[Rfam]
RNA: RAGATH-18 RNA
Organism: Clostridium botulinum
RNA sequence: CCUUUGGAGUGUUACAACCACUUGAGUAGUAUUAGUAAUAAUACGAAAAAGAACACGUUGAAAAAGGAA
Numbered sequence: 001c002c003u004u005u006g007g008a009g010u011g012u013u014a015c016a017a018c019c020a021c022u023u024g025a026g027u028a029g030u031a032u033u034a035g036u037a038a039u040a041a042u043a044c045g046a047a048a049a050a051g052a053a054c055a056c057g058u059u060g061a062a063a064a065a066g067g068a069a
Base pairs, nucleotide, nucleotide: 001067002066003065004064005063009056010055011054012053013052021051022050023049029044030043031042032041033040